[Rfam]
RNA sequence: CUUUCUGUGCAGGUUGGGCUAGGCAGCAAUGCUUUUUACUUGUAUGGUAUUGCACUUGUCCCGGCCUGUUGAGGACUC
Numbered sequence: 001c002u003u004u005c006u007g008u009g010c011a012g013g014u015u016g017g018g019c020u021a022g023g024c025a026g027c028a029a030u031g032c033u034u035u036u037u038a039c040u041u042g043u044a045u046g047g048u049a050u051u052g053c054a055c056u057u058g059u060c061c062c063g064g065c066c067u068g069u070u071g072a073g074g075a076c077u078c
Base pairs, nucleotide, nucleotide: 004074005073006072009069010068011067012066013065014064016062017061018060020058022056023055026053027052028051029050030049031048032047033046
RNA: mir-92 microRNA precursor family